[Rfam]
RNA sequence: CCCAUGGCGUUGCCAUGGGCUAUGUUGGGACGCACCUCCGGUGCU
Numbered sequence: 001c002c003c004a005u006g007g008c009g010u011u012g013c014c015a016u017g018g019g020c021u022a023u024g025u026u027g028g029g030a031c032g033c034a035c036c037u038c039c040g041g042u043g044c045u
Base pairs, nucleotide, nucleotide: 001019002018003017004016005015006014007013008012032044033043034042035041036040
Acido-Lenti-1 RNA: a 45-nucleotide sequence from Sulfuriroseicoccus oceanibius. The source organism's lineage runs through Bacteria, Verrucomicrobiota, Verrucomicrobiia, Verrucomicrobiales and Sulfuriroseicoccus.